Shown here is a 93-nucleotide sequence from Monodelphis domestica, a member of the family "mir-210 microRNA precursor family". The family's consensus secondary structure was predicted with WAR.
[Rfam]
RNA sequence: UCCGGCCGCAGGGGAGCCACUGACUAACGCACAUUGCGCUCAGGACCCACUGUGCGUGUGACAGCGGCUACCGUGCAACCGGCCCGCAGCUGG
Numbered sequence: 001u002c003c004g005g006c007c008g009c010a011g012g013g014g015a016g017c018c019a020c021u022g023a024c025u026a027a028c029g030c031a032c033a034u035u036g037c038g039c040u041c042a043g044g045a046c047c048c049a050c051u052g053u054g055c056g057u058g059u060g061a062c063a064g065c066g067g068c069u070a071c072c073g074u075g076c077a078a079c080c081g082g083c084c085c086g087c088a089g090c091u092g093g
Base pairs, nucleotide, nucleotide: 005079008076009075010074012072015069016068017067018066020064021063022062024060025058026057028056029055030054031053032052033051035049036048
Source information
Lineage of the source: Eukaryota > Sarcopterygii > Didelphimorphia > Didelphinae > Monodelphis. The sequence is in the family's curated seed alignment. Rfam 15.1 lists 790 matches to the family in 722 species.